RNA sequence: GAAAGCAGGGUGAGAAACCCUGCCGCCGGAUGACUAAGGGUUCCAGGGGCAGGCUAAUCCGCCCUGGGUAAGUCGGGACCUAAGGCGAGGCCGAAAGGCGUAGUCGAUGGACAACGGGUUGAUAUUCCCGUACCCGCGUAGAUGCGACCAUGACGAGCCCGUGUUGUGCUAACCACCCAAACUCGACCGACUGUGCCCUUCGGGGUGUAGCGGGACGGGGGCGGCUGGGACCCCGCAUGGUAGUAGUCAAGCGAUGGGGUGACGCAGGAGGGUAGCUGAUCCCGGUGACUGGUAGUGCCGGGCCAAGCGUGUAGCCCGCCGUAUAGGUAAAUCCGUACGGCAUGAAGGGUGAGACGUGACGGGUAGCCUGAUUAAAGGUGUAAGUCAGUGAUCCCAUGCUGCCGAGAAAAGCCUCUAGCGAUGUAUCGAGCGGCCCGUACCCUAAACCGACACAGGUAGUCAGGUAGAGAAUACUAAGGCGAU
Numbered sequence: 001g002a003a004a005g006c007a008g009g010g011u012g013a014g015a016a017a018c019c020c021u022g023c024c025g026c027c028g029g030a031u032g033a034c035u036a037a038g039g040g041u042u043c044c045a046g047g048g049g050c051a052g053g054c055u056a057a058u059c060c061g062c063c064c065u066g067g068g069u070a071a072g073u074c075g076g077g078a079c080c081u082a083a084g085g086c087g088a089g090g091c092c093g094a095a096a097g098g099c100g101u102a103g104u105c106g107a108u109g110g111a112c113a114a115c116g117g118g119u120u121g122a123u124a125u126u127c128c129c130g131u132a133c134c135c136g137c138g139u140a141g142a143u144g145c146g147a148c149c150a151u152g153a154c155g156a157g158c159c160c161g162u163g164u165u166g167u168g169c170u171a172a173c174c175a176c177c178c179a180a181a182c183u184c185g186a187c188c189g190a191c192u193g194u195g196c197c198c199u200u201c202g203g204g205g206u207g208u209a210g211c212g213g214g215a216c217g218g219g220g221g222c223g224g225c226u227g228g229g230a231c232c233c234c235g236c237a238u239g240g241u242a243g244u245a246g247u248c249a250a251g252c253g254a255u256g257g258g259g260u261g262a263c264g265c266a267g268g269a270g271g272g273u274a275g276c277u278g279a280u281c282c283c284g285g286u287g288a289c290u291g292g293u294a295g296u297g298c299c300g301g302g303c304c305a306a307g308c309g310u311g312u313a314g315c316c317c318g319c320c321g322u323a324u325a326g327g328u329a330a331a332u333c334c335g336u337a338c339g340g341c342a343u344g345a346a347g348g349g350u351g352a353g354a355c356g357u358g359a360c361g362g363g364u365a366g367c368c369u370g371a372u373u374a375a376a377g378g379u380g381u382a383a384g385u386c387a388g389u390g391a392u393c394c395c396a397u398g399c400u401g402c403c404g405a406g407a408a409a410a411g412c413c414u415c416u417a418g419c420g421a422u423g424u425a426u427c428g429a430g431c432g433g434c435c436c437g438u439a440c441c442c443u444a445a446a447c448c449g450a451c452a453c454a455g456g457u458a459g460u461c462a463g464g465u466a467g468a469g470a471a472u473a474c475u476a477a478g479g480c481g482a483u
Base pairs, nucleotide, nucleotide: 005023006022007021008020009019010018024481025480026479027478032461033460034459035458038441039440043067044066045065046064047063048062052060053059074437075436076435077434079110080109084105085104086103088101090099091098092097115228117226118225119224120223121222233433234432235431236430238428239427240426241425242424251419252418256415257414258413259412260411264402265401266400267399270395271394272393275389276388277387278386279385281302282301283300284299285298286297303362304361307357308356309355310354314350315349316348318341319340320339321338322337323336324335326334327333366379367378368377369376447456448455463475464474465473466472

Bacterial large subunit ribosomal RNA: a 483-nucleotide part of an RNA from Stackebrandtia endophytica. The organism belongs to Stackebrandtia, within Bacteria.